[Rfam]
The family of this 65-nucleotide RNA sequence from Hymenochirus boettgeri is "mir-375 microRNA precursor family".
Taxonomically the source falls in Hymenochirus (Eukaryota, Chordata, Tetrapoda, Pipinae).
RNA sequence: CCUGACGUCGAGCCCGACGGGCAAUGCCUGAUGUCAAUGUUUUGUUCGUUCGGCUCGCGUUAGGC
Numbered sequence: 001c002c003u004g005a006c007g008u009c010g011a012g013c014c015c016g017a018c019g020g021g022c023a024a025u026g027c028c029u030g031a032u033g034u035c036a037a038u039g040u041u042u043u044g045u046u047c048g049u050u051c052g053g054c055u056c057g058c059g060u061u062a063g064g065c
Stems, first nucleotide, its partner, number of pairs: 001064003005060003009057006018048002021045004026040002
Gene Ontology terms of the family: miRNA-mediated post-transcriptional gene silencing and RISC complex.